[Rfam]
RNA sequence: AUCCAAGUGGUGGAAUGGUAGACACGACAAACUUAAGCUUUGUUGGCUAUGCCUUGAAGGUUCAAGUCCUUCUUUGGAUA
Numbered sequence: 001a002u003c004c005a006a007g008u009g010g011u012g013g014a015a016u017g018g019u020a021g022a023c024a025c026g027a028c029a030a031a032c033u034u035a036a037g038c039u040u041u042g043u044u045g046g047c048u049a050u051g052c053c054u055u056g057a058a059g060g061u062u063c064a065a066g067u068c069c070u071u072c073u074u075u076g077g078a079u080a
Base pairs, nucleotide, nucleotide: 001079002078003077004076005075006074007073010025011024012023027043028042029041030040031039056072057071058070059069060068

The record is an 80-nucleotide RNA from Fusarium albosuccineum, which matches "tRNA" in Rfam. About the family: Transfer RNA (tRNA) molecules are approximately 80 nucleotides in length. It scores 52 bits against the family's covariance model. Rfam links the family to the GO term triplet codon-amino acid adaptor activity. The base pairs follow the family's consensus structure, which is taken from published work. It is annotated as a transfer RNA. The source organism's lineage runs through Eukaryota, Ascomycota, saccharomyceta, Hypocreomycetidae and Fusarium decemcellulare species complex.